[Rfam]
RNA sequence: CGACCGCCCGCGCGCUCAUGCGGGCCGAGGCCACACGGACAGCCGGGUCGGAUGCCGA
Dot-bracket structure: (((((((((((........))))))....................)))))........